Rfam assigns this 235-nucleotide RNA sequence from Rynchops niger to the family "Small nucleolar RNA SNORD17". The literature on the family includes a 2001 paper in EMBO J by Huttenhofer et al., "RNomics: an experimental approach that identifies 201 candidates for novel, small, non-messenger RNAs in mouse". It scores 110 bits against the family's covariance model. The snoRNA HBI-43 belongs to the C/D family of snoRNAs, guiding 2'O-ribose methylation at position U3797 of the 28S rRNA. Pseudouridylation in position U3797 is predicted to be guided by the H/ACA snoRNA ACA48.
[Rfam]
Nucleotides: 235
Stems, first nucleotide, its partner, number of pairs: 004227002007224001010220002013218003017213002021209002026171002029168001030166006037158001038155007046075005052069001055067004080147006093133002099126005105121007173206003177202004182197005
Number, partner (000 for none) and nucleotide at each position: 001000g002000a003000a004227g005226u006000u007224u008000a009000u010220c011219c012000a013218u014217u015216c016000u017213c018212u019000g020000a021209g022208u023000g024000c025000a026171g027170u028000g029168g030166u031165g032164c033163u034162g035161c036000c037158c038155u039154c040153c041152u042151g043150c044149a045000g046075c047074a048073c049072c050071c051000c052069g053000a054000u055067u056066c057065c058064u059000g060000u061000u062000c063000u064058a065057g066056g067055g068000u069052c070000u071050g072049g073048g074047u075046g076000c077000u078000g079000u080147g081146c082145a083144g084143c085142c086000u087000c088000c089000a090000g091000a092000g093133a094132c095000c096000c097000u098000c099126c100125a101124g102123u103122c104000u105121c106120c107119c108118a109117g110116u111115g112000u113000c114000c115111u116110g117109c118108u119107g120106g121105g122103g123102g124101c125100u126099g127000c128000u129000g130000u131000g132094g133093u134000g135000u136000g137000u138000g139000g140000c141000u142085g143084g144083c145082u146081g147080c148000c149044u150043g151042c152041a153040g154039g155038a156000g157000u158037g159000a160000a161035g162034u163033g164032g165031u166030g167000c168029c169000g170027g171026c172000a173206g174205g175204g176000u177202u178201g179200g180199a181000g182197c183196c184195c185194c186193u187000c188000u189000u190000u191000g192000g193186g194185g195184g196183g197182g198000c199180u200179c201178u202177g203000u204175c205174c206173c207000c208022a209021c210000u211000g212018a213017g214000a215000c216015g217014a218013g219011g220010g221000a222000u223000g224007a225000u226005g227004u228000c229000u230000g231000a232000u233000c234000a235000c

Gene Ontology terms of the family: RNA processing and nucleolus.